[Rfam]
RNA sequence: UCUAGAGAGGUGAUUUCUAGGACUGUCCAACUUGAGAAUGGUGACUUUUGGCUCAAUCUCAGGUUCGUCAGCCCAUGAAAAACUUUCUUGCA
Dot-bracket structure: ....(((((((..((((..((.(((.(.(((((((((.((.............)).))))))))).).))).))..)))).)))).)))...